RNA sequence: GGCCGAUGAAAUCCUUCCACCACCUCCUUGUGGUAUCGGCCGGUAACAAGGACCUUAAUGGUCCUUAGCCAACGGUGGGGG
Numbered sequence: 001g002g003c004c005g006a007u008g009a010a011a012u013c014c015u016u017c018c019a020c021c022a023c024c025u026c027c028u029u030g031u032g033g034u035a036u037c038g039g040c041c042g043g044u045a046a047c048a049a050g051g052a053c054c055u056u057a058a059u060g061g062u063c064c065u066u067a068g069c070c071a072a073c074g075g076u077g078g079g080g081g
Base pairs, nucleotide, nucleotide: 014081015080016079017078018077019076020075021074022034023033024032048066049065050064051063052062053061054060